[Rfam]
RNA sequence: AUUCCUUCUGUCGGGUAUCCCCGAUUAAGGCAACCCCAAAUGCU
Numbered sequence: 001a002u003u004c005c006u007u008c009u010g011u012c013g014g015g016u017a018u019c020c021c022c023g024a025u026u027a028a029g030g031c032a033a034c035c036c037c038a039a040a041u042g043c044u
Stems, first nucleotide, its partner, number of pairs: 010025004032044001034042001